RNA: mir-544 microRNA precursor family
Organism: Delphinapterus leucas
RNA sequence: AACACCUGCGGAUCUUGUUAAACUGCAGAUUCUGAUUCAGUAAGUUUCCAUGGGACCCGUGAUUCUGCAUUUCUAACAAGUUCCCAGGUGGUGCUCU
Numbered sequence: 001a002a003c004a005c006c007u008g009c010g011g012a013u014c015u016u017g018u019u020a021a022a023c024u025g026c027a028g029a030u031u032c033u034g035a036u037u038c039a040g041u042a043a044g045u046u047u048c049c050a051u052g053g054g055a056c057c058c059g060u061g062a063u064u065c066u067g068c069a070u071u072u073c074u075a076a077c078a079a080g081u082u083c084c085c086a087g088g089u090g091g092u093g094c095u096c097u
Stems, first nucleotide, its partner, number of pairs: 003090003010083002014080007021072002025068005031062002
Dot-bracket structure: ..(((....((..(((((((((..(((((.((............................)).)))))..)).))))))).))....))).......